[Rfam]
RNA sequence: UCCCGUUCCGAGGGGUGCCCGCAAGGGCUGAGACGGCUUCUCAAGCCGAACCCAUCGAACCUGAUCCGGGUCAUACCGGCGGAGGGACUGGAACGCGGCGCAUGC
Numbered sequence: 001u002c003c004c005g006u007u008c009c010g011a012g013g014g015g016u017g018c019c020c021g022c023a024a025g026g027g028c029u030g031a032g033a034c035g036g037c038u039u040c041u042c043a044a045g046c047c048g049a050a051c052c053c054a055u056c057g058a059a060c061c062u063g064a065u066c067c068g069g070g071u072c073a074u075a076c077c078g079g080c081g082g083a084g085g086g087a088c089u090g091g092a093a094c095g096c097g098g099c100g101c102a103u104g105c
Base pairs, nucleotide, nucleotide: 006093007092008091009090010089012053013052014051016048017028018027019026020025035047036046037045038044039043060085061084062083066079067078068077069076
RNA: TPP riboswitch aptamer (THI element)